[Rfam]
RNA sequence: CCCCCGCCCUCUGGAGAGCCGCCCUGCGCGGCACCGAAGGAGCAAGGCCUCCCGCACGGCCAAACUCUCAGGUGGAGGAGACAGAGGAACGACC
Numbered sequence: 001c002c003c004c005c006g007c008c009c010u011c012u013g014g015a016g017a018g019c020c021g022c023c024c025u026g027c028g029c030g031g032c033a034c035c036g037a038a039g040g041a042g043c044a045a046g047g048c049c050u051c052c053c054g055c056a057c058g059g060c061c062a063a064a065c066u067c068u069c070a071g072g073u074g075g076a077g078g079a080g081a082c083a084g085a086g087g088a089a090c091g092a093c094c
Stems, first nucleotide, its partner, number of pairs: 008087006019031004033073003036069002040067003046060001
The family of this 94-nucleotide sequence from Symbiobacterium thermophilum is "Glycine riboswitch aptamer". The source organism's lineage runs through Bacteria, Bacillota, Eubacteriales, Symbiobacteriaceae and Symbiobacterium thermophilum. Rfam links the family to the GO term glycine biosynthetic process. A reference for the family is Mandal et al. (2004), "A glycine-dependent riboswitch that uses cooperative binding to control gene expression", Science. It scores 49 bits against the family's covariance model.